The family of this 196-nucleotide sequence from Dickeya dadantii is "GcvB RNA". For this family Rfam cites "Small noncoding RNA GcvB is a novel regulator of acid resistance in Escherichia coli" (Jin et al., BMC Genomics, 2009). The gcvB gene encodes a small untranslated RNA involved in expression of the dipeptide and oligopeptide transport systems in Escherichia coli. Included several unknown homologues in alignment (Bateman A pers obs). It base-pairs with SorC. This interaction triggers the degradation of GcvB by RNase E, alleviating the GcvB-mediated mRNA repression of other amino acid-related transport and metabolic genes.
RNA sequence: ACUUCCCUGAGCCGGAACGAAAAGUGCGAAAGGUUGACUGACGUGCUUUUGGCUUGUGGUUGUGAUGUUGUGUUUGCUAUUUGUUUACUGUCUGCAUUUCAGACGCGGUAGCGAUGCUACCUUUCAUUUCCUGUACAUUUACCCUGUCUGUCUAAGUGAUUUUUGCAUAGCACCGCGUUUUGCGGUGCUUUUUUUU
Numbered sequence: 001a002c003u004u005c006c007c008u009g010a011g012c013c014g015g016a017a018c019g020a021a022a023a024g025u026g027c028g029a030a031a032g033g034u035u036g037a038c039u040g041a042c043g044u045g046c047u048u049u050u051g052g053c054u055u056g057u058g059g060u061u062g063u064g065a066u067g068u069u070g071u072g073u074u075u076g077c078u079a080u081u082u083g084u085u086u087a088c089u090g091u092c093u094g095c096a097u098u099u100c101a102g103a104c105g106c107g108g109u110a111g112c113g114a115u116g117c118u119a120c121c122u123u124u125c126a127u128u129u130c131c132u133g134u135a136c137a138u139u140u141a142c143c144c145u146g147u148c149u150g151u152c153u154a155a156g157u158g159a160u161u162u163u164u165g166c167a168u169a170g171c172a173c174c175g176c177g178u179u180u181u182g183c184g185g186u187g188c189u190u191u192u193u194u195u196u
Stems, first nucleotide, its partner, number of pairs: 010054004016050002022048006032039002089105006107121006136165002169189008
Dot-bracket structure: .........((((..((....((((((....((....))...))))))))))))..................................((((((.....)))))).((((((...))))))..............((..........................))...((((((((.....)))))))).......